[Rfam]
RNA sequence: UCCAGGAAGGAAGGCAAGAUGUUGGCAUAGCUGAUGAAGUUAAAACCCUGCUAUGCCAUCACAUUGCCAUCUUUCUCCCCC
Numbered sequence: 001u002c003c004a005g006g007a008a009g010g011a012a013g014g015c016a017a018g019a020u021g022u023u024g025g026c027a028u029a030g031c032u033g034a035u036g037a038a039g040u041u042a043a044a045a046c047c048c049u050g051c052u053a054u055g056c057c058a059u060c061a062c063a064u065u066g067c068c069a070u071c072u073u074u075c076u077c078c079c080c081c
Base pairs, nucleotide, nucleotide: 005076006075007074008073009072010071011070013068014067015066016065017064020061021060023058024057025056026055027054028053029052030051031050
RNA: mir-31 microRNA precursor family